[Rfam]
RNA sequence: GGAAGUGUGUGCUAGUGAUGGCACAGCUGAACAUUGAUCGCUAGGUAUAGAUUAUAGAUAUAUGGCAGAUCUGCUCAGUGGUCGUCACGUGGUCGCCAUAAGUAACUUGUGUUCGGCUCCCGAUUGCGCGUAUAGCUUCGUAUCCGUCUUCUAUGGAGACGCUACGAACUUGUACGCCUGCACGGUAGAGUCUUCACGUCAUUCCUCGAACUACCGCGAUUUACCAAAUUUGGGGGGCAAUCGGAUAGGUUAGACGAGGUAAUUUGUCACUUCCAUAUACAGGCACUGCAGUUUCGCAGUAUGCCAUUUUUUUUG
Numbered sequence: 001g002g003a004a005g006u007g008u009g010u011g012c013u014a015g016u017g018a019u020g021g022c023a024c025a026g027c028u029g030a031a032c033a034u035u036g037a038u039c040g041c042u043a044g045g046u047a048u049a050g051a052u053u054a055u056a057g058a059u060a061u062a063u064g065g066c067a068g069a070u071c072u073g074c075u076c077a078g079u080g081g082u083c084g085u086c087a088c089g090u091g092g093u094c095g096c097c098a099u100a101a102g103u104a105a106c107u108u109g110u111g112u113u114c115g116g117c118u119c120c121c122g123a124u125u126g127c128g129c130g131u132a133u134a135g136c137u138u139c140g141u142a143u144c145c146g147u148c149u150u151c152u153a154u155g156g157a158g159a160c161g162c163u164a165c166g167a168a169c170u171u172g173u174a175c176g177c178c179u180g181c182a183c184g185g186u187a188g189a190g191u192c193u194u195c196a197c198g199u200c201a202u203u204c205c206u207c208g209a210a211c212u213a214c215c216g217c218g219a220u221u222u223a224c225c226a227a228a229u230u231u232g233g234g235g236g237g238c239a240a241u242c243g244g245a246u247a248g249g250u251u252a253g254a255c256g257a258g259g260u261a262a263u264u265u266g267u268c269a270c271u272u273c274c275a276u277a278u279a280c281a282g283g284c285a286c287u288g289c290a291g292u293u294u295c296g297c298a299g300u301a302u303g304c305c306a307u308u309u310u311u312u313u314u315g
Stems, first nucleotide, its partner, number of pairs: 001274007015088005027078003032073002036071004040066004046060003282305003285300005
RNA: Arthropod 7SK RNA